[Rfam]
RNA sequence: AUUUUAGUGUAAGUAUGUCCCGGGCAAUAUUUGGGACAUACUUAUACUCAAC
Numbered sequence: 001a002u003u004u005u006a007g008u009g010u011a012a013g014u015a016u017g018u019c020c021c022g023g024g025c026a027a028u029a030u031u032u033g034g035g036a037c038a039u040a041c042u043u044a045u046a047c048u049c050a051a052c
Stems, first nucleotide, its partner, number of pairs: 006048007014040003018036004022031001
Dot-bracket structure: .....(((((((.(((.(((((........).)))).))).)))))))....
This 52-nucleotide RNA from Myotis myotis belongs to the Rfam family "mir-1302 microRNA precursor family". It scores 64 bits against the family's covariance model. The family's consensus secondary structure was predicted with WAR. Rfam 15.1 lists 16,160 matches to the family in 135 species.